[Rfam]
RNA sequence: UAUGACUAAAUACUAAAUCACACACGUAUCGACACGUUCUUCGGGGUGCCUAUUUAGGUCGGAGAUAUGGGAUGCGUGGAGGUCUAAC
Number, nucleotide and partner (000 for none) at each position: 001u000002a000003u000004g000005a000006c000007u000008a000009a000010a000011u000012a000013c000014u000015a000016a000017a000018u000019c000020a000021c000022a000023c078024a077025c076026g075027u074028a073029u072030c071031g000032a000033c000034a000035c069036g068037u067038u000039c000040u063041u062042c061043g060044g000045g000046g000047u000048g059049c058050c057051u056052a000053u000054u000055u000056a051057g050058g049059u048060c043061g042062g041063a040064g000065a000066u000067a037068u036069g035070g000071g030072a029073u028074g027075c026076g025077u024078g023079g000080a000081g000082g000083u000084c000085u000086a000087a000088c000

A member of the RNA family "t44 RNA" from Shewanella loihica, 88 nucleotides long. It scores 76 bits against the family's covariance model. By type it is a small RNA. Rfam describes the family as follows. This family consists of a number of bacterial RNA genes of between 135 and 170 bases in length.